[Rfam]
RNA sequence: GCCGGGGACUGUGGCACAUGCCUAUAGUCCCAGCUACUCAGGAUGCUGAGGCGGGAGGAUCACUUGAGUCCAGGAGUUCUGGGCUAUCUGUAGUGUGCUAUGCCGACCGGGUGUCUGCACUAAGUUUGGCAUCAAUAUGGUGGCCUCCCGGGAGCGGGGGACCACCGUGUUGCCUAAAGAGGGGUGAAUCGAUUCAGUUCAGAAACGGACCAGGUCAAAACUCCCGUGCUGAUCAGUAGUGGGAUUGUACCUGUGAAUAGCCACUGCACUCCAGCCUGGGCAACAUAGUGAGACCCCAUCUCUU
Numbered sequence: 001g002c003c004g005g006g007g008a009c010u011g012u013g014g015c016a017c018a019u020g021c022c023u024a025u026a027g028u029c030c031c032a033g034c035u036a037c038u039c040a041g042g043a044u045g046c047u048g049a050g051g052c053g054g055g056a057g058g059a060u061c062a063c064u065u066g067a068g069u070c071c072a073g074g075a076g077u078u079c080u081g082g083g084c085u086a087u088c089u090g091u092a093g094u095g096u097g098c099u100a101u102g103c104c105g106a107c108c109g110g111g112u113g114u115c116u117g118c119a120c121u122a123a124g125u126u127u128g129g130c131a132u133c134a135a136u137a138u139g140g141u142g143g144c145c146u147c148c149c150g151g152g153a154g155c156g157g158g159g160g161a162c163c164a165c166c167g168u169g170u171u172g173c174c175u176a177a178a179g180a181g182g183g184g185u186g187a188a189u190c191g192a193u194u195c196a197g198u199u200c201a202g203a204a205a206c207g208g209a210c211c212a213g214g215u216c217a218a219a220a221c222u223c224c225c226g227u228g229c230u231g232a233u234c235a236g237u238a239g240u241g242g243g244a245u246u247g248u249a250c251c252u253g254u255g256a257a258u259a260g261c262c263a264c265u266g267c268a269c270u271c272c273a274g275c276c277u278g279g280g281c282a283a284c285a286u287a288g289u290g291a292g293a294c295c296c297c298a299u300c301u302c303u304u
Base pairs, nucleotide, nucleotide: 001046002045004023005022006021008019028043029042030041048302049301050300051299053297054296055295060291061290062289063288064287068281069280070279071278072277073276074275079274080273081272082271083270085268091266092265093264094263095262097261098260099259100258101257103255108253109252110251111250112249113248114247115243116242118241119240120239121238122237124234126232127231128230129229130228131227132226133172134171135170136169137168138167139166140165141164142163143162145160146159147158148157149156150155173179181224182223183222184221185220191216192215193214194213199208200207
Dot-bracket structure: ((.(((.(..........).)))....(((..........))).)).((((.(((....(((((...(((((((....(((((.(.....(((((.(((((.(....(((((((((.(((((.(.((((((((((((((((((.((((((....)))))).)))))))))))(.....).(((((.....((((....((......))....))))...))))).))))))).)..)))))))...))))))).).)))))))))).).)))))))))))).....)))))...))).))))..
Shown here is a 304-nucleotide RNA from Mandrillus leucophaeus, a member of the family "Metazoan signal recognition particle RNA". On this family, see Wild et al., Curr Opin Struct Biol 2002: "Towards the structure of the mammalian signal recognition particle". The organism belongs to Mandrillus, within Eukaryota. A search with the family's covariance model found it, with a score of 220 bits. Clan: SRP clan. Pairs were carried over by alignment from the consensus structure, which is taken from published work.